[Rfam]
RNA sequence: GAGUCUAACAUGUGUGCAAGUAUUAGGGCGUGGAAACCCAAAUGCGUAAUGAAAGUAAAUGCUGUGUAUGCAGCUUUGGUAGGAAGGGGCUGUAAUGGUCCUGGCACUAUCGACCGAUCAUGAGCCUACGGGCGAAAGAUUUGAGUAUGAGCAUAUAUGUUGGUACCCGAAAGAUGGUGAACUAUGCCUGAAUAGGGUGAAGCCAGGGGAAACUCUGGUGGAAGCUCGUAGCGAUUCUGACGUGCAAAUCGAUCGUCAAAUUUGGGUAUAGGGGCGAAAGACUAAUCGAACCAUCUAGUAGCUGGUU
Number, nucleotide and partner (000 for none) at each position: 001g000002a000003g000004u000005c163006u162007a161008a160009c159010a158011u157012g156013u155014g154015u153016g152017c151018a000019a000020g045021u044022a043023u000024u000025a000026g039027g038028g037029c000030g000031u000032g000033g000034a000035a000036a000037c028038c027039c026040a000041a000042a000043u022044g021045c020046g000047u000048a000049a056050u055051g000052a000053a000054a000055g050056u049057a000058a000059a000060u000061g000062c000063u000064g000065u000066g000067u000068a000069u000070g000071c000072a000073g000074c000075u000076u000077u000078g111079g110080u109081a108082g107083g000084a000085a000086g102087g101088g100089g099090c000091u000092g000093u000094a000095a000096u000097g000098g000099u089100c088101c087102u086103g000104g000105c000106a000107c082108u081109a080110u079111c078112g000113a146114c145115c143116g142117a141118u139119c138120a000121u000122g000123a000124g133125c132126c000127u000128a000129c000130g000131g000132g125133c124134g000135a000136a000137a000138g119139a118140u000141u117142u116143g115144a000145g114146u113147a000148u000149g000150a000151g017152c016153a015154u014155a013156u012157a011158u010159g009160u008161u007162g006163g005164u000165a000166c305167c304168c000169g302170a000171a000172a000173g295174a294175u293176g292177g291178u290179g000180a000181a000182c271183u270184a269185u268186g267187c266188c265189u264190g263191a262192a261193u259194a000195g227196g226197g225198u224199g000200a000201a000202g219203c218204c217205a216206g215207g214208g213209g000210a000211a000212a000213c208214u207215c206216u205217g204218g203219u202220g000221g000222a000223a000224g198225c197226u196227c195228g000229u000230a000231g256232c255233g254234a253235u000236u252237c251238u000239g250240a249241c000242g000243u000244g000245c000246a000247a000248a000249u240250c239251g237252a236253u234254c233255g232256u231257c000258a000259a193260a000261u192262u191263u190264g189265g188266g187267u186268a185269u184270a183271g182272g000273g283274g282275c000276g000277a000278a000279a000280g000281a000282c274283u273284a000285a000286u000287c000288g000289a000290a178291c177292c176293a175294u174295c173296u000297a000298g000299u000300a000301g000302c169303u000304g167305g166306u000307u000
RNA: Eukaryotic large subunit ribosomal RNA, nucleotides 771 to 1077